[Rfam]
RNA: small nucleolar RNA snoR114
Organism: Momordica charantia
RNA sequence: GAGCUGUGAUGAAAUUUAAGCAAUCGUGAUGUAAGGGUUCAUCACAACCAUCUGACCUCAAGAUGAAAUCUGCUUCUCUGAGCUC
Numbered sequence: 001g002a003g004c005u006g007u008g009a010u011g012a013a014a015u016u017u018a019a020g021c022a023a024u025c026g027u028g029a030u031g032u033a034a035g036g037g038u039u040c041a042u043c044a045c046a047a048c049c050a051u052c053u054g055a056c057c058u059c060a061a062g063a064u065g066a067a068a069u070c071u072g073c074u075u076c077u078c079u080g081a082g083c084u085c
Base pairs, nucleotide, nucleotide: 001085002084003083004082
Dot-bracket structure: ((((.............................................................................))))